[Rfam]
RNA: MIR2863 microRNA precursor family
Organism: Oryza sativa
RNA sequence: UCUUUUACCCACACUAGUUCAACUAAAUGAACUAAAUUUCACUUUUAGAAUCACAAAAAAUGAAAUGUAGUUCGUUUAUUUGGACUAGAGUGGGUCAAUUA
Numbered sequence: 001u002c003u004u005u006u007a008c009c010c011a012c013a014c015u016a017g018u019u020c021a022a023c024u025a026a027a028u029g030a031a032c033u034a035a036a037u038u039u040c041a042c043u044u045u046u047a048g049a050a051u052c053a054c055a056a057a058a059a060a061u062g063a064a065a066u067g068u069a070g071u072u073c074g075u076u077u078a079u080u081u082g083g084a085c086u087a088g089a090g091u092g093g094g095u096c097a098a099u100u101a
Stems, first nucleotide, its partner, number of pairs: 001101001004098002008094005014088009024078011036066006043059004048054001